The family of this 100-nucleotide RNA sequence from Phoenix dactylifera is "Small nucleolar RNA Z161/Z228". Taxonomically the source falls in Phoenix (Eukaryota, Viridiplantae, Tracheophyta, Spermatophyta). Rfam 15.1 lists 630 matches to the family in 214 species. For this family Rfam cites "The high diversity of snoRNAs in plants: identification and comparative study of 120 snoRNA genes from Oryza sativa" (Chen et al., Nucleic Acids Res, 2003). Its Rfam clan is "SNORD35 clan".
[Rfam]
RNA sequence: AUACCAUAUGAUGAGAAUAACUUUUUAUUUCUCACGACGGUCAUCUGAGACACCCUUUUUGGUGUCUAGAUUGAUGCUACCUAUUUUUCUCUGAUGGUAU
Numbered sequence: 001a002u003a004c005c006a007u008a009u010g011a012u013g014a015g016a017a018u019a020a021c022u023u024u025u026u027a028u029u030u031c032u033c034a035c036g037a038c039g040g041u042c043a044u045c046u047g048a049g050a051c052a053c054c055c056u057u058u059u060u061g062g063u064g065u066c067u068a069g070a071u072u073g074a075u076g077c078u079a080c081c082u083a084u085u086u087u088u089c090u091c092u093g094a095u096g097g098u099a100u
Stems, first nucleotide, its partner, number of pairs: 001100004051064003